[Rfam]
RNA sequence: AUCAGAGUGGCGCAGCGGAAGCGUGGUGGGCCCAUAACCCACAGGUCCCAGGAUCGAAACCUGGCUCUGAUA
Numbered sequence: 001a002u003c004a005g006a007g008u009g010g011c012g013c014a015g016c017g018g019a020a021g022c023g024u025g026g027u028g029g030g031c032c033c034a035u036a037a038c039c040c041a042c043a044g045g046u047c048c049c050a051g052g053a054u055c056g057a058a059a060c061c062u063g064g065c066u067c068u069g070a071u072a
Stems, first nucleotide, its partner, number of pairs: 001071007010024004026042005048064005